[Rfam]
RNA sequence: AUGUUAGAAUGACACUUUUUGGUCAUCUGCUUAUAUCUUUCCCAAGCUUCAUAGAGGAAUUCACCAUCUUUUUGCUUGAAGGUCUGAACAUCCUCUCUAAGCUU
Number, nucleotide and partner (000 for none) at each position: 001a104002u000003g102004u101005u099006a098007g000008a000009a000010u000011g000012a000013c000014a000015c000016u000017u000018u000019u000020u000021g000022g000023u000024c000025a000026u000027c000028u000029g000030c000031u000032u000033a000034u000035a000036u000037c000038u000039u000040u000041c000042c000043c000044a000045a000046g000047c000048u000049u000050c000051a000052u000053a000054g071055a070056g000057g068058a000059a000060u000061u000062c000063a000064c000065c000066a000067u000068c057069u000070u055071u054072u000073u000074g000075c000076u000077u000078g000079a000080a000081g000082g000083u000084c000085u000086g000087a000088a000089c000090a000091u000092c000093c000094u000095c000096u000097c000098u006099a005100a000101g004102c003103u000104u001
Plant small nucleolar RNA R71: a 104-nucleotide sequence from Arachis hypogaea. Rfam 15.1 lists 278,378 matches to the family in 216 species. On this family, see Brown et al., Trends Plant Sci 2003: "Plant snoRNAs: functional evolution and new modes of gene expression". It scores 42 bits against the family's covariance model. It is annotated as a C/D-box small nucleolar RNA.